RNA sequence: AAUCAUAUUUGUAGAAAUAAAAAAAAAACAAAUUUAUUCUAUACCCAAUAAAUAACAAUAUGCAAUGGUG
Numbered sequence: 001a002a003u004c005a006u007a008u009u010u011g012u013a014g015a016a017a018u019a020a021a022a023a024a025a026a027a028a029c030a031a032a033u034u035u036a037u038u039c040u041a042u043a044c045c046c047a048a049u050a051a052a053u054a055a056c057a058a059u060a061u062g063c064a065a066u067g068g069u070g
Base pairs, nucleotide, nucleotide: 003023006019007018008017009016010015045068046067052061053060054059
Plastid-clpP 5UTR RNA: a 70-nucleotide sequence from Glycine max.
The family has 343 seed sequences and 2,105 matches in Rfam 15.1.
The organism belongs to Glycine subgen. Soja, within Eukaryota.
The base pairs follow the family's consensus structure, which was predicted with LocARNA.
The match comes from Rfam's covariance-model search (62 bits).
A reference for the family is Richter et al. (2023), "Retrograde signaling in plants: A critical review focusing on the GUN pathway and beyond", Plant Commun.
The family's RNA type in Rfam is cis-regulatory element.
Plastid clpP is a non-coding RNA (ncRNA) recognised in plastids.